Rfam assigns this 84-nucleotide RNA sequence from Danio rerio to the family "mir-455 microRNA precursor family". The family has 29 seed sequences and 756 matches in Rfam 15.1. Rfam links the family to the GO terms cellular response to amino acid stimulus, sensory perception of sound and cellular response to leukemia inhibitory factor.
RNA sequence: CCCUGAAGUGAGGGUAUGUGCCCUUGGACUACAUUGUGGAGGCCAGCACCAUGCAGUCCAUGGGCAUAUACACUUACUUCAUGG
Dot-bracket structure: ..............(((((((((.((((((.(((.(((........))).))).)))))).)))))))))..............